This 130-nucleotide RNA sequence from Caenorhabditis elegans belongs to the Rfam family "C. elegans snoRNA ceN100".
[Rfam]
RNA sequence: AUACGAGGUCCAGAGUCACCUCUGAGAAUAUGUAUCUCUUCGGUGCUAGGAUUGCUCGAAAAUGAAUUAGGUACUUUAUGCAAACAGUUCUUGCGUUAUGCUCAUCUGUUUCACCUCCGUUUCUGACAAA
Numbered sequence: 001a002u003a004c005g006a007g008g009u010c011c012a013g014a015g016u017c018a019c020c021u022c023u024g025a026g027a028a029u030a031u032g033u034a035u036c037u038c039u040u041c042g043g044u045g046c047u048a049g050g051a052u053u054g055c056u057c058g059a060a061a062a063u064g065a066a067u068u069a070g071g072u073a074c075u076u077u078a079u080g081c082a083a084a085c086a087g088u089u090c091u092u093g094c095g096u097u098a099u100g101c102u103c104a105u106c107u108g109u110u111u112c113a114c115c116u117c118c119g120u121u122u123c124u125g126a127c128a129a130a
Stems, first nucleotide, its partner, number of pairs: 004058004008052004014047002017045004025037001027035001069124003074119001079113002082111004087106001089104001093101002